Overview
The family of this 122-nucleotide sequence from Notechis scutatus is "Small nucleolar RNA SNORA13". Lineage of the source: Eukaryota > Opisthokonta > Squamata > Bifurcata > Notechis. The family is grouped with related families in Rfam's "SNORA13 clan". A search with the family's covariance model found it, with a score of 77 bits. The family's consensus secondary structure was predicted with CMfinder. Rfam's curators write: ACA13 is a member of the H/ACA class of snoRNA that guide the sites of modification of uridines to pseudouridines.
[Rfam]
RNA sequence: UGCCUUUGUGUUGCCCAUUCACACUGCCUUUGGUGAAUGUGGUGUCAGAAAAGGCAUAUAUCAACUGUAGCUGUCAUGUGAAUUGAUUAUUCAUUUUUCUCUGCAUUUCAGCUAGAACAUAC
Numbered sequence: 001u002g003c004c005u006u007u008g009u010g011u012u013g014c015c016c017a018u019u020c021a022c023a024c025u026g027c028c029u030u031u032g033g034u035g036a037a038u039g040u041g042g043u044g045u046c047a048g049a050a051a052a053g054g055c056a057u058a059u060a061u062c063a064a065c066u067g068u069a070g071c072u073g074u075c076a077u078g079u080g081a082a083u084u085g086a087u088u089a090u091u092c093a094u095u096u097u098u099c100u101c102u103g104c105a106u107u108u109c110a111g112c113u114a115g116a117a118c119a120u121a122c
Stems, first nucleotide, its partner, number of pairs: 002055006009047002012044004016039007068114006077105003080101002085096002
Dot-bracket structure: .((((((.((.(((((((((((..........))))))).)))).))..))))))............((((((...(((((...((........))...)).)))...))))))........